[Rfam]
Shown here is a 111-nucleotide RNA from Brassica carinata, a member of the family "MIR9563 microRNA precursor family". It scores 91 bits against the family's covariance model. Rfam links the family to the GO terms RISC complex and miRNA-mediated post-transcriptional gene silencing.
RNA sequence: AAAAUAUAAGAAACUGUUUCUUAACUUUUAACUAAAAAGCUAAGAAUCUUAUUUAAGAACCGAUUCUUAGUUUUUUUUAGUUAAAAAUUAAGAAACAGUUUCUUAUAUUUU
Numbered sequence: 001a002a003a004a005u006a007u008a009a010g011a012a013a014c015u016g017u018u019u020c021u022u023a024a025c026u027u028u029u030a031a032c033u034a035a036a037a038a039g040c041u042a043a044g045a046a047u048c049u050u051a052u053u054u055a056a057g058a059a060c061c062g063a064u065u066c067u068u069a070g071u072u073u074u075u076u077u078u079a080g081u082u083a084a085a086a087a088u089u090a091a092g093a094a095a096c097a098g099u100u101u102c103u104u105a106u107a108u109u110u111u
Base pairs, nucleotide, nucleotide: 001111002110003109004108005107006106007105008104009103010102011101012100013099014098015097016096017095018094019093020092021091022090023089024088026086027085028084029083030082031081032080033079034078035077036076037075038074039073040070041069042068043067044066045065046064